[Rfam]
RNA sequence: CGACGUCGGUUCCUCCUCCUGUCUGCAGUCAAGCAGGAGGAUUUUACGACGUCGCAGAGAAUUUUGGGUCUUUUCACCCAGAAAGCUUCAGGCUGCAGCCGAAAAUGAAAACGGCUUCCUGGUUUUGCGGGACCCAACACUC
Numbered sequence: 001c002g003a004c005g006u007c008g009g010u011u012c013c014u015c016c017u018c019c020u021g022u023c024u025g026c027a028g029u030c031a032a033g034c035a036g037g038a039g040g041a042u043u044u045u046a047c048g049a050c051g052u053c054g055c056a057g058a059g060a061a062u063u064u065u066g067g068g069u070c071u072u073u074u075c076a077c078c079c080a081g082a083a084a085g086c087u088u089c090a091g092g093c094u095g096c097a098g099c100c101g102a103a104a105a106u107g108a109a110a111a112c113g114g115c116u117u118c119c120u121g122g123u124u125u126u127g128c129g130g131g132a133c134c135c136a137a138c139a140c141u142c
Base pairs, nucleotide, nucleotide: 001054002053003052004051005050006049007048008047014041015040016039017038018037020035021034022033067134068133069132070131071130072129078122079121080120081119083117084116085115086114087113
The family of this 142-nucleotide RNA sequence from Kryptolebias marmoratus is "Small nucleolar RNA SNORA79".
The base pairs follow the family's consensus structure, which was predicted with RNAalifold.
Rfam's curators write: ACA65 (SNORA79) is a member of the H/ACA class of snoRNAs that guide the sites of modification of uridines to pseudouridines.
The family's RNA type in Rfam is H/ACA-box small nucleolar RNA.
NCBI's taxonomy places the organism under Eukaryota, Eumetazoa, Deuterostomia, Euteleosteomorpha, Kryptolebias.